The family of this 91-nucleotide RNA sequence from Siccirubricoccus deserti is "chrB-a RNA". The family's consensus secondary structure is taken from published work.
[Rfam]
RNA sequence: AGCAAGGGGUCCCCCGCGAUCGCCCCGUGAGGCUUCGGCCCAAGCAUCGCGUCCAUACUCCGGCGCUCUGCGCCGCGGGAGGACGCAUAUG
Numbered sequence: 001a002g003c004a005a006g007g008g009g010u011c012c013c014c015c016g017c018g019a020u021c022g023c024c025c026c027g028u029g030a031g032g033c034u035u036c037g038g039c040c041c042a043a044g045c046a047u048c049g050c051g052u053c054c055a056u057a058c059u060c061c062g063g064c065g066c067u068c069u070g071c072g073c074c075g076c077g078g079g080a081g082g083a084c085g086c087a088u089a090u091g
Stems, first nucleotide, its partner, number of pairs: 006026005049086006
Notes:
The source organism's lineage runs through Bacteria, Pseudomonadota, Acetobacterales, Roseomonadaceae and Siccirubricoccus.